[Rfam]
Rfam assigns this 170-nucleotide sequence from Peptostreptococcaceae bacterium oral taxon 113 to the family "Group II catalytic intron D1-D4-3". NCBI's taxonomy places the organism under Bacteria, Bacillati, Clostridia, Peptostreptococcaceae, Peptostreptococcaceae bacterium oral taxon 113.
RNA sequence: CACACUGCGAGAUAUGAGCGAGAAGAAACAAUAAUGAAACCGCAACCUGACGAACAAAAACCUAAUAUGAAAGUUUAAGUGACAGAUACACGAGCAAGAAAUCGUGAAGUCCACUAGGCAAGAUGUAACUCGCUUAAAUAGAUUAGGUAAACGAGGAAAUAUUAAAGGGU
Numbered sequence: 001c002a003c004a005c006u007g008c009g010a011g012a013u014a015u016g017a018g019c020g021a022g023a024a025g026a027a028a029c030a031a032u033a034a035u036g037a038a039a040c041c042g043c044a045a046c047c048u049g050a051c052g053a054a055c056a057a058a059a060a061c062c063u064a065a066u067a068u069g070a071a072a073g074u075u076u077a078a079g080u081g082a083c084a085g086a087u088a089c090a091c092g093a094g095c096a097a098g099a100a101a102u103c104g105u106g107a108a109g110u111c112c113a114c115u116a117g118g119c120a121a122g123a124u125g126u127a128a129c130u131c132g133c134u135u136a137a138a139u140a141g142a143u144u145a146g147g148u149a150a151a152c153g154a155g156g157a158a159a160u161a162u163u164a165a166a167g168g169g170u
Base pairs, nucleotide, nucleotide: 001016002015004013006011028170029169032166040156041155043153048149049148061147062146063145064144065143066142073139074138075137077135078134079133080132081131082130085111086110087109090105091104092103093102